This 185-nucleotide RNA from Salibacterium salarium belongs to the Rfam family "Lysine riboswitch aptamer". Lineage of the source: Bacteria > Bacillati > Bacillota > Caryophanales > Salibacterium. The match comes from Rfam's covariance-model search (110 bits). Gene Ontology term of the family: lysine biosynthetic process.
RNA sequence: AGUGAGGUUAGAGGUGCAAUGACAUUAGUAAGUAAUAGGAGGAUCAUGAAAUCCUUUGAUUAUUACUGAAAGGGGAAUUUGCCGAAGUGGACAGCUUUUCAUGAGCUUGAAACUGGUUUCGUAUUGAAAAAAUGCGAAACUGUCAUAUAGCGUGUGUUUACGCUAUAUGGAGGGCUAUCUCACGC
Numbered sequence: 001a002g003u004g005a006g007g008u009u010a011g012a013g014g015u016g017c018a019a020u021g022a023c024a025u026u027a028g029u030a031a032g033u034a035a036u037a038g039g040a041g042g043a044u045c046a047u048g049a050a051a052u053c054c055u056u057u058g059a060u061u062a063u064u065a066c067u068g069a070a071a072g073g074g075g076a077a078u079u080u081g082c083c084g085a086a087g088u089g090g091a092c093a094g095c096u097u098u099u100c101a102u103g104a105g106c107u108u109g110a111a112a113c114u115g116g117u118u119u120c121g122u123a124u125u126g127a128a129a130a131a132a133u134g135c136g137a138a139a140c141u142g143u144c145a146u147a148u149a150g151c152g153u154g155u156g157u158u159u160a161c162g163c164u165a166u167a168u169g170g171a172g173g174g175c176u177a178u179c180u181c182a183c184g185c
Base pairs, nucleotide, nucleotide: 006180007179009177010176011175016082017081018080019079020077023074031067032066033065034064035063036062037061038060086114087113088112093107094106095105096104097103115141116140117139118138119137120136121135122134123133124132125131143170144169145168146167147166148165149164150163151162152161